[Rfam]
This 62-nucleotide RNA sequence from Ictalurus punctatus belongs to the Rfam family "mir-728 microRNA precursor family". Pairs were carried over by alignment from the consensus structure, which was predicted with RNAalifold. NCBI's taxonomy places the organism under Eukaryota, Euteleostomi, Clupeocephala, Characiphysae, Ictalurus.
RNA sequence: AAAUGUAGUUGACUAUAAGUAUACUUAUAGCAGACAAUGUAUACUAAGUACACUACGUUUUC
Numbered sequence: 001a002a003a004u005g006u007a008g009u010u011g012a013c014u015a016u017a018a019g020u021a022u023a024c025u026u027a028u029a030g031c032a033g034a035c036a037a038u039g040u041a042u043a044c045u046a047a048g049u050a051c052a053c054u055a056c057g058u059u060u061u062c
Base pairs, nucleotide, nucleotide: 001060002059003058004057005056006055007054008053009052012049013048014047018045019044020043021042022041023040024039